[Rfam]
RNA: GlmZ RNA activator of glmS mRNA
Organism: Enterobacteriaceae bacterium strain FGI 57
RNA sequence: GUGGCUCAUUCACCCUCUUAUGUCAGCCCCUUCGGGACGUGCUACAUAAACUUCGAAUGACGCACAACAAGGUGCCUGCCGUCCAGCUUCUGAUAUCUUUGCAUAUCAACCAUCGGGCGAAACGUUGAGUUAGGCACCGCCUUAUUCCAGAACAAAGCCGGGUUUCGACCCGGCUUUGUUAUU
Numbered sequence: 001g002u003g004g005c006u007c008a009u010u011c012a013c014c015c016u017c018u019u020a021u022g023u024c025a026g027c028c029c030c031u032u033c034g035g036g037a038c039g040u041g042c043u044a045c046a047u048a049a050a051c052u053u054c055g056a057a058u059g060a061c062g063c064a065c066a067a068c069a070a071g072g073u074g075c076c077u078g079c080c081g082u083c084c085a086g087c088u089u090c091u092g093a094u095a096u097c098u099u100u101g102c103a104u105a106u107c108a109a110c111c112a113u114c115g116g117g118c119g120a121a122a123c124g125u126u127g128a129g130u131u132a133g134g135c136a137c138c139g140c141c142u143u144a145u146u147c148c149a150g151a152a153c154a155a156a157g158c159c160g161g162g163u164u165u166c167g168a169c170c171c172g173g174c175u176u177u178g179u180u181a182u183u
Base pairs, nucleotide, nucleotide: 004063005062006060007059008058009057014055016048019044024041071138072137073136074135075134076133077132081118082117083116084115092107093106094105095104153178154177155176156175157174158173159172160171161170162169163168
Dot-bracket structure: ...((((((....(.(..(....(................)..)...)......).)))).)).......(((((((...((((.......((((........)))).......)))).............)))))))..............(((((((((((....))))))))))).....